[Rfam]
RNA: mir-9/mir-79 microRNA precursor family
RNA sequence: UUGUCUUUCCCUUUGGUUAUCUGGCUGUAUGAGUGAGCCAUAACAUCAUAAAGCUAGGUUACCAAAGCUAAGCACAA
Number, nucleotide and partner (000 for none) at each position: 001u077002u076003g075004u074005c000006u000007u071008u070009c000010c000011c067012u066013u065014u064015g063016g062017u061018u000019a059020u058021c057022u056023g055024g054025c053026u052027g000028u050029a049030u048031g047032a046033g000034u000035g000036a000037g000038c000039c000040a000041u000042a000043a000044c000045a000046u032047c031048a030049u029050a028051a000052a026053g025054c024055u023056a022057g021058g020059u019060u000061a017062c016063c015064a014065a013066a012067g011068c000069u000070a008071a007072g000073c000074a004075c003076a002077a001